RNA sequence: UUAAAACUUCAGGGCAGGGCGAAAUUCCCGACCGGUGGUAGAGUCCACGAGUUAUUUUUAUUUAUUUUUAAAAAUGACAUGAACUGGUGCAAUUCCAGUACCGAUAGUUAUAGUCUAGAUGGUAGAAGUGAAAA
Numbered sequence: 001u002u003a004a005a006a007c008u009u010c011a012g013g014g015c016a017g018g019g020c021g022a023a024a025u026u027c028c029c030g031a032c033c034g035g036u037g038g039u040a041g042a043g044u045c046c047a048c049g050a051g052u053u054a055u056u057u058u059u060a061u062u063u064a065u066u067u068u069u070a071a072a073a074a075u076g077a078c079a080u081g082a083a084c085u086g087g088u089g090c091a092a093u094u095c096c097a098g099u100a101c102c103g104a105u106a107g108u109u110a111u112a113g114u115c116u117a118g119a120u121g122g123u124a125g126a127a128g129u130g131a132a133a134a
Base pairs, nucleotide, nucleotide: 006129007128008127009126010125017029018028019027031114032113033103034102035048036047037046038045043101044100053077083099084098085097086096087095105117106116107115
A member of the RNA family "FMN riboswitch aptamer (RFN element)" from Leptotrichia shahii, 134 nucleotides long. Taxonomically the source falls in Leptotrichia (Bacteria, Fusobacteriati, Fusobacteriota, Fusobacteriia). The family's consensus secondary structure is taken from published work. Gene Ontology term of the family: FMN binding.